[Rfam]
Shown here is a 175-nucleotide RNA from bacterium 1XD42-8, a member of the family "Lysine riboswitch aptamer".
RNA sequence: AAUAUUGAUAGAGGUUGCGUUUUUCAUAAGUACGUUUUUGGAUGUGGCAGAAGCAGAAGAAAAGAAUGGAAAGGGGACAACGCCGAAAAGGCAUGGAAUCUGCAGUCAUGCUUUUGGGCAUACAGUGAAUAAUUGUAUGACUGUCAUCUUUUUGGAAGAUGGAGUGCUAUCUGUU
Numbered sequence: 001a002a003u004a005u006u007g008a009u010a011g012a013g014g015u016u017g018c019g020u021u022u023u024u025c026a027u028a029a030g031u032a033c034g035u036u037u038u039u040g041g042a043u044g045u046g047g048c049a050g051a052a053g054c055a056g057a058a059g060a061a062a063a064g065a066a067u068g069g070a071a072a073g074g075g076g077a078c079a080a081c082g083c084c085g086a087a088a089a090g091g092c093a094u095g096g097a098a099u100c101u102g103c104a105g106u107c108a109u110g111c112u113u114u115u116g117g118g119c120a121u122a123c124a125g126u127g128a129a130u131a132a133u134u135g136u137a138u139g140a141c142u143g144u145c146a147u148c149u150u151u152u153u154g155g156a157a158g159a160u161g162g163a164g165u166g167c168u169a170u171c172u173g174u175u
Stems, first nucleotide, its partner, number of pairs: 007171005017083005023077003033068007087115010116142002119139008144162007

The family's consensus secondary structure is taken from published work.